[Rfam]
RNA sequence: GCGUUCGCUUUAGCUCACUGGCUCCUUCACAGCAUCAACGUAAUUGUAAGUUCAAACCUGUCUCACCAUGAGCGCUGCCUGGCGUUUUU
Numbered sequence: 001g002c003g004u005u006c007g008c009u010u011u012a013g014c015u016c017a018c019u020g021g022c023u024c025c026u027u028c029a030c031a032g033c034a035u036c037a038a039c040g041u042a043a044u045u046g047u048a049a050g051u052u053c054a055a056a057c058c059u060g061u062c063u064c065a066c067c068a069u070g071a072g073c074g075c076u077g078c079c080u081g082g083c084g085u086u087u088u089u
Stems, first nucleotide, its partner, number of pairs: 002084004007079001013073004019068003026055002029052001
Rfam assigns this 89-nucleotide sequence from Scyliorhinus torazame to the family "Vault RNA". The organism belongs to Scyliorhinus, within Eukaryota. It is annotated as a non-coding RNA gene. The family's consensus secondary structure is taken from published work. Rfam describes the family as follows. This family of RNAs are found as part of the enigmatic vault ribonucleoprotein complex. The complex consists of a major vault protein (MVP), two minor vault proteins (VPARP and TEP1), and several small untranslated RNA molecules. It has been suggested that the vault complex is involved in drug resistance.